[Rfam]
RNA sequence: CCCCGGGAUUCGCCGAGUCCUGCCCGUCCGGGGGAGACCCUCCGUCAGUCAUGGGCAGGAGUGGGGGAACCACACGUUCCACGCAGCCGUCGCCAACCAGGCGUCGGGUGCUCGGGGUGAAGUCGCCGUGAGGCGGCGGAGCACUUUCCAGCUCCAACCCGACAGCUCACCUCACAGGCGUGGGAAAGGUCCU
Numbered sequence: 001c002c003c004c005g006g007g008a009u010u011c012g013c014c015g016a017g018u019c020c021u022g023c024c025c026g027u028c029c030g031g032g033g034g035a036g037a038c039c040c041u042c043c044g045u046c047a048g049u050c051a052u053g054g055g056c057a058g059g060a061g062u063g064g065g066g067g068a069a070c071c072a073c074a075c076g077u078u079c080c081a082c083g084c085a086g087c088c089g090u091c092g093c094c095a096a097c098c099a100g101g102c103g104u105c106g107g108g109u110g111c112u113c114g115g116g117g118u119g120a121a122g123u124c125g126c127c128g129u130g131a132g133g134c135g136g137c138g139g140a141g142c143a144c145u146u147u148c149c150a151g152c153u154c155c156a157a158c159c160c161g162a163c164a165g166c167u168c169a170c171c172u173c174a175c176a177g178g179c180g181u182g183g184g185a186a187a188g189g190u191c192c193u
Stems, first nucleotide, its partner, number of pairs: 011180004018060010061175006071114001115160003123136004139154004